[Rfam]
RNA: U12 minor spliceosomal RNA
RNA sequence: AUGCCUUAAACUUAUGAGUAAGGAAAAUAACGACUUGGGGUGGGGCUGGAAUGCUCACUGCUAACGUGAGACAAAUUUUUGUGCUGGUAAAGUUUGGCCCUCAGGGGACCCACCUACUUUGUGGGAUGCCUGUCUUCCUUAGUUAAAAA
Numbered sequence: 001a002u003g004c005c006u007u008a009a010a011c012u013u014a015u016g017a018g019u020a021a022g023g024a025a026a027a028u029a030a031c032g033a034c035u036u037g038g039g040g041u042g043g044g045g046c047u048g049g050a051a052u053g054c055u056c057a058c059u060g061c062u063a064a065c066g067u068g069a070g071a072c073a074a075a076u077u078u079u080u081g082u083g084c085u086g087g088u089a090a091a092g093u094u095u096g097g098c099c100c101u102c103a104g105g106g107g108a109c110c111c112a113c114c115u116a117c118u119u120u121g122u123g124g125g126a127u128g129c130c131u132g133u134c135u136u137c138c139u140u141a142g143u144u145a146a147a148a149a
Stems, first nucleotide, its partner, number of pairs: 004023005033052001035050002038047002054070005088149001091144004096139002103131003107127001109125005